Overview:
Rfam assigns this 107-nucleotide sequence from Streptomyces sp. SID8111 to the family "ZMP/ZTP riboswitch aptamer (pfl RNA motif)". NCBI's taxonomy places the organism under Bacteria, Actinomycetota, Actinomycetes, Kitasatosporales, Streptomyces. It scores 40 bits against the family's covariance model.
RNA sequence: ACCUCGGGUCGUGACUGGCGUGCUGGGAUGGAGCAACCAUCGGGAAGCGGCCCCCGGGCCCGUGGACCACCGGGACCGGCACCGUGCCGUGCGCCUGGGCCGCACCG
Numbered sequence: 001a002c003c004u005c006g007g008g009u010c011g012u013g014a015c016u017g018g019c020g021u022g023c024u025g026g027g028a029u030g031g032a033g034c035a036a037c038c039a040u041c042g043g044g045a046a047g048c049g050g051c052c053c054c055c056g057g058g059c060c061c062g063u064g065g066a067c068c069a070c071c072g073g074g075a076c077c078g079g080c081a082c083c084g085u086g087c088c089g090u091g092c093g094c095c096u097g098g099g100c101c102g103c104a105c106c107g
Base pairs, nucleotide, nucleotide: 003056006053007052008051009050010049011048012047015044016043017095018094019093020092021091028040029039030038031037086100087099088098